[Rfam]
Nucleotides: 224
Base pairs, nucleotide, nucleotide: 055084056083057082095174096173097172098171099170100169114164115163116162206222207221209220210219211218
Number, partner (000 for none) and nucleotide at each position: 001000a002000u003000g004000g005000a006000a007000a008000u009000c010000a011000u012000u013000u014000a015000g016000c017000a018000g019000g020000a021000a022000u023000c024000c025000a026000u027000u028000a029000a030000u031000g032000g033000g034000u035000c036000u037000u038000g039000a040000a041000a042000a043000g044000c045000u046000u047000g048000g049000g050000c051000a052000u053000u054000u055084g056083g057082a058000g059000u060000a061000a062000g063000g064000g065000a066000u067000u068000u069000c070000a071000u072000c073000a074000g075000a076000a077000c078000c079000u080000c081000a082057u083056c084055c085000a086000a087000a088000u089000u090000u091000a092000u093000c094000a095174g096173u097172u098171u099170g100169u101000c102000u103000a104000u105000a106000c107000u108000u109000a110000g111000c112000c113000a114164u115163c116162u117000g118000c119000u120000c121000u122000g123000c124000u125000c126000u127000g128000c129000u130000a131000a132000a133000u134000c135000u136000c137000u138000u139000c140000u141000c142000a143000a144000g145000u146000a147000a148000u149000g150000c151000a152000u153000u154000a155000a156000u157000g158000g159000c160000g161000a162116a163115g164114a165000u166000a167000u168000a169100g170099c171098g172097a173096a174095c175000c176000a177000g178000u179000c180000g181000g182000c183000a184000a185000g186000u187000c188000a189000c190000a191000g192000a193000a194000u195000g196000g197000c198000a199000a200000a201000u202000g203000a204000g205000g206222g207221a208000u209220c210219u211218c212000a213000g214000a215000u216000a217000u218211g219210g220209g221207u222206c223000u224000u